[Rfam]
Nucleotides: 035
Stems, first nucleotide, its partner, number of pairs: 002021004010034003
Number, partner (000 for none) and nucleotide at each position: 001000u002021u003020a004019g005018g006000g007000a008000a009000a010034g011033c012032u013000g014000a015000a016000a017000a018005c019004c020003u021002a022000a023000a024000c025000c026000a027000g028000a029000g030000u031000a032012g033011g034010c035000a

Shown here is a 35-nucleotide RNA from Marivirga aurantiaca, a member of the family "DUF805b RNA".
A search with the family's covariance model found it, with a score of 36 bits.